RNA sequence: AUUCUUUCUCAGAGGCAAUAUUGUAGCUUAUGAGGUUUAGACGCAAUCAUUGCUGGAUGAAAACUUUACCCAAUAGCCCACCAGGAUGACUUGAAAUAUAGUCAGCCUUGCCAUAUUUUGCCAGCUUCUCUAGAAG
Numbered sequence: 001a002u003u004c005u006u007u008c009u010c011a012g013a014g015g016c017a018a019u020a021u022u023g024u025a026g027c028u029u030a031u032g033a034g035g036u037u038u039a040g041a042c043g044c045a046a047u048c049a050u051u052g053c054u055g056g057a058u059g060a061a062a063a064c065u066u067u068a069c070c071c072a073a074u075a076g077c078c079c080a081c082c083a084g085g086a087u088g089a090c091u092u093g094a095a096a097u098a099u100a101g102u103c104a105g106c107c108u109u110g111c112c113a114u115a116u117u118u119u120g121c122c123a124g125c126u127u128c129u130c131u132a133g134a135a136g
Stems, first nucleotide, its partner, number of pairs: 020047005026042001028040003082110001083108003087104005125136004

The family of this 136-nucleotide RNA from Cyprinus carpio is "U4 spliceosomal RNA". It scores 64 bits against the family's covariance model. The family's RNA type in Rfam is spliceosomal small nuclear RNA. U4 small nuclear RNA (U4 snRNA) is a component of the major U2-dependent spliceosome.